[Rfam]
RNA sequence: GCAGUAUCCCGGUCUGUCGCUGGCGUCGCUCUGAGUGCGCGAGAGGAAAGUCCGGGCAGCACAGAGCACUCCGCUCCCGAAAAUAGGAGCUGUCGGUGACGACAGGUGUUGGCAGAAGAGAACGACCGCCUGCCCCCACGGGCCGGUAAGGGUGAGAAGGUGGUGUAAGAGACCACCGGUUGGCCGGGUGAUCGGCCAAGCCGUGCCUUCCGGAGGCUGCAAGUUCAUGUAAACCGCAGUUUGAGGGUUGCUCGCCCGACCUCCCUUGCGGAGACUGCGGAGGGUAGAAUGCUAAAGCCUCGGGGCAACUCGUGGAUUAGAUAAAUGACAGACAGCCGCCUUGGCGGCCAACAGAACCCGGCUUACGGGGAUGCUGCUUUU
Numbered sequence: 001g002c003a004g005u006a007u008c009c010c011g012g013u014c015u016g017u018c019g020c021u022g023g024c025g026u027c028g029c030u031c032u033g034a035g036u037g038c039g040c041g042a043g044a045g046g047a048a049a050g051u052c053c054g055g056g057c058a059g060c061a062c063a064g065a066g067c068a069c070u071c072c073g074c075u076c077c078c079g080a081a082a083a084u085a086g087g088a089g090c091u092g093u094c095g096g097u098g099a100c101g102a103c104a105g106g107u108g109u110u111g112g113c114a115g116a117a118g119a120g121a122a123c124g125a126c127c128g129c130c131u132g133c134c135c136c137c138a139c140g141g142g143c144c145g146g147u148a149a150g151g152g153u154g155a156g157a158a159g160g161u162g163g164u165g166u167a168a169g170a171g172a173c174c175a176c177c178g179g180u181u182g183g184c185c186g187g188g189u190g191a192u193c194g195g196c197c198a199a200g201c202c203g204u205g206c207c208u209u210c211c212g213g214a215g216g217c218u219g220c221a222a223g224u225u226c227a228u229g230u231a232a233a234c235c236g237c238a239g240u241u242u243g244a245g246g247g248u249u250g251c252u253c254g255c256c257c258g259a260c261c262u263c264c265c266u267u268g269c270g271g272a273g274a275c276u277g278c279g280g281a282g283g284g285u286a287g288a289a290u291g292c293u294a295a296a297g298c299c300u301c302g303g304g305g306c307a308a309c310u311c312g313u314g315g316a317u318u319a320g321a322u323a324a325a326u327g328a329c330a331g332a333c334a335g336c337c338g339c340c341u342u343g344g345c346g347g348c349c350a351a352c353a354g355a356a357c358c359c360g361g362c363u364u365a366c367g368g369g370g371a372u373g374c375u376g377c378u379u380u381u
Stems, first nucleotide, its partner, number of pairs: 001377010011366001012333007020043002023040004048364003052361005057219004064269001066267001069215005074089004090105001092103004106209001111207004126151002128147003132143004159177006179201001180199008223290004234280005261273004298315002301312004
A member of the RNA family "Bacterial RNase P class A" from Segatella buccae, 381 nucleotides long. Taxonomically the source falls in Segatella buccae (Bacteria, Pseudomonadati, Bacteroidales, Segatella). Rfam classes the family as a ribozyme.